[Rfam]
RNA sequence: GUGGUACGCCGCUCCGUUGUGCCGUGCGAAAGGACACGGAGUGGCCGUGCGAGUGACUAGCGCCCCUGUCGGGGCCGCGGAUCACGAGCUGUCUGGCGUCCGAGAGGUGCGAACUCUCGGACGCCGAUG
Numbered sequence: 001g002u003g004g005u006a007c008g009c010c011g012c013u014c015c016g017u018u019g020u021g022c023c024g025u026g027c028g029a030a031a032g033g034a035c036a037c038g039g040a041g042u043g044g045c046c047g048u049g050c051g052a053g054u055g056a057c058u059a060g061c062g063c064c065c066c067u068g069u070c071g072g073g074g075c076c077g078c079g080g081a082u083c084a085c086g087a088g089c090u091g092u093c094u095g096g097c098g099u100c101c102g103a104g105a106g107g108u109g110c111g112a113a114c115u116c117u118c119g120g121a122c123g124c125c126g127a128u129g
Stems, first nucleotide, its partner, number of pairs: 001089002006048002009044009022033002050086002053083001055082001060078002062075005094126013

Shown here is a 129-nucleotide RNA sequence from Streptomyces tsukubensis, a member of the family "Streptomyces RNA 6925". Identified by deep sequencing of transcriptome at the end of exponential growth phase. Sequencing size consistent with northern blot size. Streptomyces specific. Small 12 nt possible coding region observed. Rfam 15.1 lists 63 matches to the family in 61 species. By type it is a small RNA. The literature on the family includes a 2011 paper in RNA Biol by Vockenhuber et al., "Deep sequencing-based identification of small non-coding RNAs in Streptomyces coelicolor". Lineage of the source: Bacteria > Bacillati > Actinomycetota > Streptomycetaceae > Streptomyces.